A member of the RNA family "Plastid-rps12 3UTR RNA" from Centaurea solstitialis, 97 nucleotides long. Rfam's curators write: Plastid rpl20 is a non-coding RNA (ncRNA) recognised in plastids. On this family, see Richter et al., Plant Commun 2023: "Retrograde signaling in plants: A critical review focusing on the GUN pathway and beyond". The source organism's lineage runs through Eukaryota, Tracheophyta, Spermatophyta, Asterales and Centaurea.
[Rfam]
RNA sequence: AGUUUCUGUUGGUGUAAAUCCACUCACCUCAAUUCAAGAUGAGAAACAAUUCUUCAUUGGUAGCAAAUGGUUAUCCAUUAAGAAGGGGAAAUAUCAA
Numbered sequence: 001a002g003u004u005u006c007u008g009u010u011g012g013u014g015u016a017a018a019u020c021c022a023c024u025c026a027c028c029u030c031a032a033u034u035c036a037a038g039a040u041g042a043g044a045a046a047c048a049a050u051u052c053u054u055c056a057u058u059g060g061u062a063g064c065a066a067a068u069g070g071u072u073a074u075c076c077a078u079u080a081a082g083a084a085g086g087g088g089a090a091a092u093a094u095c096a097a
Stems, first nucleotide, its partner, number of pairs: 010022003052087003056078002059075006